A member of the RNA family "mir-87 microRNA precursor family" from Meloidogyne graminicola, 76 nucleotides long.
Rfam links the family to the GO terms RISC complex and miRNA-mediated post-transcriptional gene silencing.
Taxonomically the source falls in Meloidogyne (Eukaryota, Ecdysozoa, Chromadorea, Rhabditida).
A reference for the family is Sempere et al. (2003), "Temporal regulation of microRNA expression in Drosophila melanogaster mediated by hormonal signals and broad-Complex gene activity", Dev Biol.
[Rfam]
RNA sequence: UGCUCGCCGCCUGGGACUUCGUCUCAACCUUUGUUUAUCUGGGUCUAGGUGAGCAAAGUUUCAGGUGUGCGAACAU
Numbered sequence: 001u002g003c004u005c006g007c008c009g010c011c012u013g014g015g016a017c018u019u020c021g022u023c024u025c026a027a028c029c030u031u032u033g034u035u036u037a038u039c040u041g042g043g044u045c046u047a048g049g050u051g052a053g054c055a056a057a058g059u060u061u062c063a064g065g066u067g068u069g070c071g072a073a074c075a076u
Stems, first nucleotide, its partner, number of pairs: 002074001004072004008067007016059004023053004028049003